[Rfam]
RNA sequence: GAACACGAUUUAGAAUUGCGAAGUCAAGUGGGUCUUCAUCCUGGUGCACCAUGUGCUAGAGCUGGAGGCGGCUUGGGGAAAUUCCCCGGACACCAGGGCAGAGAGUGCCAGCGUCUAAGCGCAGACUCCCUCAGCGAUGAAGCUACGCGGAGAUGGCUCACUUCGGUGGGCCGGAGCUUUCGGCGGAUUCGUGAGGACUGAUGGUCAUACUAAAAGUUAUGCAAUUGGCUCAGCGGCACAUGGCGGACGUCGUGUCGUCGUCGCUUUGAGCUAACCCGACGGGGAUUACUCAUGUUGUGUU
Numbered sequence: 001g002a003a004c005a006c007g008a009u010u011u012a013g014a015a016u017u018g019c020g021a022a023g024u025c026a027a028g029u030g031g032g033u034c035u036u037c038a039u040c041c042u043g044g045u046g047c048a049c050c051a052u053g054u055g056c057u058a059g060a061g062c063u064g065g066a067g068g069c070g071g072c073u074u075g076g077g078g079a080a081a082u083u084c085c086c087c088g089g090a091c092a093c094c095a096g097g098g099c100a101g102a103g104a105g106u107g108c109c110a111g112c113g114u115c116u117a118a119g120c121g122c123a124g125a126c127u128c129c130c131u132c133a134g135c136g137a138u139g140a141a142g143c144u145a146c147g148c149g150g151a152g153a154u155g156g157c158u159c160a161c162u163u164c165g166g167u168g169g170g171c172c173g174g175a176g177c178u179u180u181c182g183g184c185g186g187a188u189u190c191g192u193g194a195g196g197a198c199u200g201a202u203g204g205u206c207a208u209a210c211u212a213a214a215a216g217u218u219a220u221g222c223a224a225u226u227g228g229c230u231c232a233g234c235g236g237c238a239c240a241u242g243g244c245g246g247a248c249g250u251c252g253u254g255u256c257g258u259c260g261u262c263g264c265u266u267u268g269a270g271c272u273a274a275c276c277c278g279a280c281g282g283g284g285a286u287u288a289c290u291c292a293u294g295u296u297g298u299g300u301u
Stems, first nucleotide, its partner, number of pairs: 002301008011292001014226006024076006032069007080287003084284004097109004111122004124198001126196001131194002134192004142184003145179001147177002165172002228271006
RNA: RNase MRP